[Rfam]
RNA sequence: GCCCCUGUAGCUCAGCUGGAUAGAGCGUGGCUUUCCUAAAGCCGAGGUCGCAGGUUCGAAUCCUGCCGGGGGUG
Numbered sequence: 001g002c003c004c005c006u007g008u009a010g011c012u013c014a015g016c017u018g019g020a021u022a023g024a025g026c027g028u029g030g031c032u033u034u035c036c037u038a039a040a041g042c043c044g045a046g047g048u049c050g051c052a053g054g055u056u057c058g059a060a061u062c063c064u065g066c067c068g069g070g071g072g073u074g
Base pairs, nucleotide, nucleotide: 001073002072003071004070005069006068007067010026011025012024013023028044029043030042031041032040050066051065052064053063054062
RNA: tRNA